[Rfam]
RNA sequence: CUCUGGAGAGUGUUUAUUCAGUAAACCGCCUACGAAGCAAGUAUUUGUAUAUUACAAAUACGCAACUUUCUGGUAUAAGGACAGAG
Numbered sequence: 001c002u003c004u005g006g007a008g009a010g011u012g013u014u015u016a017u018u019c020a021g022u023a024a025a026c027c028g029c030c031u032a033c034g035a036a037g038c039a040a041g042u043a044u045u046u047g048u049a050u051a052u053u054a055c056a057a058a059u060a061c062g063c064a065a066c067u068u069u070c071u072g073g074u075a076u077a078a079g080g081a082c083a084g085a086g
Stems, first nucleotide, its partner, number of pairs: 001086005012026004028074003032069001035068003041061009